[Rfam]
RNA: TPP riboswitch aptamer (THI element)
RNA sequence: GCGCAUCGACAGGGGAGCACCACCGCGGUGCUGAGAGUGCCAUAGAAGGCUGACCCUCGAACCUGAUCCGGUUAGUACCGGCGCUAGGGAGUCGAGUAUCUCAAGAG
Numbered sequence: 001g002c003g004c005a006u007c008g009a010c011a012g013g014g015g016a017g018c019a020c021c022a023c024c025g026c027g028g029u030g031c032u033g034a035g036a037g038u039g040c041c042a043u044a045g046a047a048g049g050c051u052g053a054c055c056c057u058c059g060a061a062c063c064u065g066a067u068c069c070g071g072u073u074a075g076u077a078c079c080g081g082c083g084c085u086a087g088g089g090a091g092u093c094g095a096g097u098a099u100c101u102c103a104a105g106a107g
Stems, first nucleotide, its partner, number of pairs: 006095005011057004016051001017031005039050003062088004068081004